The family of this 114-nucleotide RNA from Rhipidura dahli is "Potassium channel RNA editing signal". It is annotated as a cis-regulatory element.
RNA sequence: GUGGGAUAUGGUGACAUUUAUCCUAAGACCUUAUUAGGUAAAAUAGUUGGAGGACUUUGCUGCAUUGCUGGAGUGCUGGUCAUAGCCCUGCCCAUACCAAUUAUUGUGAACAAU
Numbered sequence: 001g002u003g004g005g006a007u008a009u010g011g012u013g014a015c016a017u018u019u020a021u022c023c024u025a026a027g028a029c030c031u032u033a034u035u036a037g038g039u040a041a042a043a044u045a046g047u048u049g050g051a052g053g054a055c056u057u058u059g060c061u062g063c064a065u066u067g068c069u070g071g072a073g074u075g076c077u078g079g080u081c082a083u084a085g086c087c088c089u090g091c092c093c094a095u096a097c098c099a100a101u102u103a104u105u106g107u108g109a110a111c112a113a114u
Stems, first nucleotide, its partner, number of pairs: 001114002004111001007108005013102002019096003037077004049063001051061001
Annotation: A search with the family's covariance model found it, with a score of 87 bits.